[Rfam]
RNA: mir-70 microRNA precursor family
Organism: Caenorhabditis briggsae
RNA sequence: UGUAUCUCUAGGAACAGCCAUCAUGUAAGACAUUUCUAACUGAAAGAUGUAAUACGUGAUUGGUGUUCCCAGAGUUUAC
Numbered sequence: 001u002g003u004a005u006c007u008c009u010a011g012g013a014a015c016a017g018c019c020a021u022c023a024u025g026u027a028a029g030a031c032a033u034u035u036c037u038a039a040c041u042g043a044a045a046g047a048u049g050u051a052a053u054a055c056g057u058g059a060u061u062g063g064u065g066u067u068c069c070c071a072g073a074g075u076u077u078a079c
Stems, first nucleotide, its partner, number of pairs: 004076001006074004011069006021059007030050006